Shown here is an 85-nucleotide RNA from Rattus norvegicus, a member of the family "mir-15 microRNA precursor family".
[Rfam]
RNA sequence: ACUCUCCUGGCUCUAGCAGCACAGAAAUAUUGGCACGGGUAAGUGAGUCUGCCAAUAUUGGCUGUGCUGCUCCAGGCAGGGUGGU
Numbered sequence: 001a002c003u004c005u006c007c008u009g010g011c012u013c014u015a016g017c018a019g020c021a022c023a024g025a026a027a028u029a030u031u032g033g034c035a036c037g038g039g040u041a042a043g044u045g046a047g048u049c050u051g052c053c054a055a056u057a058u059u060g061g062c063u064g065u066g067c068u069g070c071u072c073c074a075g076g077c078a079g080g081g082u083g084g085u
Stems, first nucleotide, its partner, number of pairs: 001085003005081002015071009026059010

Rfam's curators write: This family represents the related mir-15a and mir-15b sequences. In humans miR-15a and miR-16 are clustered within 0.5 kb at 13q14. This region has been shown to be deleted in more than half of B cell chronic lymphocytic leukaemias (CLL). Both miR-15a and miR-16 are deleted or down-regulated in more than two thirds of CLL cases. A reference for the family is Calin et al. (2002), "Frequent deletions and down-regulation of micro- RNA genes miR15 and miR16 at 13q14 in chronic lymphocytic leukemia", Proc Natl Acad Sci U S A.